RNA sequence: AUCUUCUCUUUGAGCUCCUUCCUGCCAACAAAUCCAUGGCAGCCUAUGGAUUCGCACGAGAAGAAUAUUAACUGUUCAGUAUUGGCAAUCUCACACUGUGGCUCCAUGAGCUGUGGUUCGCCAUCGCUGUUCAACAGGU
Numbered sequence: 001a002u003c004u005u006c007u008c009u010u011u012g013a014g015c016u017c018c019u020u021c022c023u024g025c026c027a028a029c030a031a032a033u034c035c036a037u038g039g040c041a042g043c044c045u046a047u048g049g050a051u052u053c054g055c056a057c058g059a060g061a062a063g064a065a066u067a068u069u070a071a072c073u074g075u076u077c078a079g080u081a082u083u084g085g086c087a088a089u090c091u092c093a094c095a096c097u098g099u100g101g102c103u104c105c106a107u108g109a110g111c112u113g114u115g116g117u118u119c120g121c122c123a124u125c126g127c128u129g130u131u132c133a134a135c136a137g138g139u
Stems, first nucleotide, its partner, number of pairs: 003063006014055002016050003022042005074132001077129003094110001096108001097106002